[Rfam]
RNA sequence: GCGCAUUCUCAGGGCAGGGUGAAAUUCCCUACCGGUGGUAAAUGUAUAACAUAAGCCCACGAGCGUUUACUAUUUCAUGUCACAAGAGAUAGUAAAGUCAGCAGAUUUGGUGAGAAUCCAAAGCCGACAGUAUAGUCUGGAUGAAAGAGAAUAAGC
Numbered sequence: 001g002c003g004c005a006u007u008c009u010c011a012g013g014g015c016a017g018g019g020u021g022a023a024a025u026u027c028c029c030u031a032c033c034g035g036u037g038g039u040a041a042a043u044g045u046a047u048a049a050c051a052u053a054a055g056c057c058c059a060c061g062a063g064c065g066u067u068u069a070c071u072a073u074u075u076c077a078u079g080u081c082a083c084a085a086g087a088g089a090u091a092g093u094a095a096a097g098u099c100a101g102c103a104g105a106u107u108u109g110g111u112g113a114g115a116a117u118c119c120a121a122a123g124c125c126g127a128c129a130g131u132a133u134a135g136u137c138u139g140g141a142u143g144a145a146a147g148a149g150a151a152u153a154a155g156c
Base pairs, nucleotide, nucleotide: 005152006151007150008149009148010147017029018028019027031136032135033126034125035060036059037058038057055124056123063102064101106122107121108120109119110118128139129138130137
Rfam assigns this 156-nucleotide sequence from Pasteurella multocida to the family "FMN riboswitch aptamer (RFN element)". Rfam's curators write: The RFN element is a highly conserved domain that is found frequently in the 5'-untranslated regions of prokaryotic mRNAs that encode for flavin mononucleotide (FMN) biosynthesis and transport proteins. Rfam's curators put it in the seed alignment. The organism belongs to Pasteurella multocida subsp. multocida, within Bacteria.